The record is a 73-nucleotide RNA from Adiantum capillus-veneris, which matches "tRNA" in Rfam. Its family is annotated with triplet codon-amino acid adaptor activity in the Gene Ontology.
RNA sequence: GCAGGUAUAACUCAAUGGGUCAGAGUGUCAGAUUGUGAAUUUGAAAACACGGGUUCAAAUCCCGUUACUCGCC
Numbered sequence: 001g002c003a004g005g006u007a008u009a010a011c012u013c014a015a016u017g018g019g020u021c022a023g024a025g026u027g028u029c030a031g032a033u034u035g036u037g038a039a040u041u042u043g044a045a046a047a048c049a050c051g052g053g054u055u056c057a058a059a060u061c062c063c064g065u066u067a068c069u070c071g072c073c
Base pairs, nucleotide, nucleotide: 001072002071004069005068006067007066010026011025012024013023028044029043030042031041032040049065050064051063052062053061